[Rfam]
RNA: Histone 3' UTR stem-loop
Organism: Perca fluviatilis
RNA sequence: AAAAAGGCUCUUUUAAGAGCCACACACUUGCCUGAUAAAGCGCUCU
Numbered sequence: 001a002a003a004a005a006g007g008c009u010c011u012u013u014u015a016a017g018a019g020c021c022a023c024a025c026a027c028u029u030g031c032c033u034g035a036u037a038a039a040g041c042g043c044u045c046u
Stems, first nucleotide, its partner, number of pairs: 006021006